[Rfam]
This 80-nucleotide RNA from Atrichornis clamosus belongs to the Rfam family "Small nucleolar RNA SNORD72". NCBI's taxonomy places the organism under Eukaryota, Teleostomi, Dipnotetrapodomorpha, Passeriformes, Atrichornis. Its family is annotated with nucleolus and RNA processing in the Gene Ontology.
Nucleotides: 080
Base pairs, nucleotide, nucleotide: 002079003078004077006075007074
Number, partner (000 for none) and nucleotide at each position: 001000u002079g003078u004077u005000a006075a007074u008000a009000a010000a011000u012000g013000u014000g015000u016000u017000u018000c019000u020000u021000u022000u023000u024000a025000a026000a027000a028000a029000u030000g031000u032000c033000u034000g035000a036000a037000u038000g039000u040000a041000u042000g043000a044000a045000u046000u047000c048000u049000g050000u051000a052000g053000u054000g055000c056000u057000u058000u059000c060000a061000g062000u063000g064000c065000a066000u067000u068000a069000c070000u071000g072000g073000g074007a075006u076000a077004a078003g079002c080000u

A search with the family's covariance model found it, with a score of 47 bits. About the family: snoRNA HBII-240 belongs to the CD family of snoRNAs. It is the human orthologue of the mouse MBII-240 and is predicted to guide 2'O-ribose methylation of the large 28S rRNA at residue U4590.